A member of the RNA family "Small nucleolar RNA SNORA31" from Carlito syrichta, 135 nucleotides long. Its family is annotated with RNA processing and nucleolus in the Gene Ontology. The source organism's lineage runs through Eukaryota, Deuterostomia, Boreoeutheria, Tarsiidae and Carlito. A search with the family's covariance model found it, with a score of 74 bits.
RNA sequence: AUGCAUCUAUUUGACAGACCUGGAGCAGUUAAUUGUCUGCUAUUCAGGUUUCCACUACAGAUGCAAGAAAAAAGUGUCCUCGCGCUUUCUGUCUGUCUGCUUGUGGCAGUCAAGAUUGAUUGGAGGAAUACAGGG
Numbered sequence: 001a002u003g004c005a006u007c008u009a010u011u012u013g014a015c016a017g018a019c020c021u022g023g024a025g026c027a028g029u030u031a032a033u034u035g036u037c038u039g040c041u042a043u044u045c046a047g048g049u050u051u052c053c054a055c056u057a058c059a060g061a062u063g064c065a066a067g068a069a070a071a072a073a074g075u076g077u078c079c080u081c082g083c084g085c086u087u088u089c090u091g092u093c094u095g096u097c098u099g100c101u102u103g104u105g106g107c108a109g110u111c112a113a114g115a116u117u118g119a120u121u122g123g124a125g126g127a128a129u130a131c132a133g134g135g
Base pairs, nucleotide, nucleotide: 002065003064004063005062006061007060008059012054013053016051017050018049019048020047024041025040026039027038028037029035077127078126079125080124081123085118088115089114090113093109094108095107096106097105
Overview
ACA31 (SNORA31) belongs to the H/ACA class of snoRNAs which are thought to guide the sites of modification of uridines to pseudouridines. The family's RNA type in Rfam is H/ACA-box small nucleolar RNA. The family has 5 seed sequences and 2,094 matches in Rfam 15.1. For this family Rfam cites "RNomics: an experimental approach that identifies 201 candidates for novel, small, non-messenger RNAs in mouse" (Huttenhofer et al., EMBO J, 2001). The family's consensus secondary structure was predicted with RNAalifold.